[Rfam]
RNA sequence: AUCGCUUCUCGGCCUUUUGGCUAAGAUCAAAGUGUAGUAUCUGUUCUUUUCAGCUUAAUAUCUGAAAGUUCCCACAAUGUGGGACCAGUAUAUUAAACUGAUUUUUGUAAACCGACGGGACGUUUGGGGCUCGCUCCACUCCCGUCACGGGUCGGCCCGGCAUUGCAGUGCUGUCGGGAU
Numbered sequence: 001a002u003c004g005c006u007u008c009u010c011g012g013c014c015u016u017u018u019g020g021c022u023a024a025g026a027u028c029a030a031a032g033u034g035u036a037g038u039a040u041c042u043g044u045u046c047u048u049u050u051c052a053g054c055u056u057a058a059u060a061u062c063u064g065a066a067a068g069u070u071c072c073c074a075c076a077a078u079g080u081g082g083g084a085c086c087a088g089u090a091u092a093u094u095a096a097a098c099u100g101a102u103u104u105u106u107g108u109a110a111a112c113c114g115a116c117g118g119g120a121c122g123u124u125u126g127g128g129g130c131u132c133g134c135u136c137c138a139c140u141c142c143c144g145u146c147a148c149g150g151g152u153c154g155g156c157c158c159g160g161c162a163u164u165g166c167a168g169u170g171c172u173g174u175c176g177g178g179a180u
Stems, first nucleotide, its partner, number of pairs: 007026003011022004048067006070084006114146007126137004156178006
RNA: U2 spliceosomal RNA
Organism: Pararge aegeria